[Rfam]
RNA: Guanidine-II riboswitch aptamer (mini-ykkC)
RNA sequence: CACCCGGGACGGUCCGGGCGCAGAUCCGGAUCUCGGGGAUGACCCCG
Numbered sequence: 001c002a003c004c005c006g007g008g009a010c011g012g013u014c015c016g017g018g019c020g021c022a023g024a025u026c027c028g029g030a031u032c033u034c035g036g037g038g039a040u041g042a043c044c045c046c047g
Base pairs, nucleotide, nucleotide: 001020003018004017005016006015007014008013034047035046036045037044038043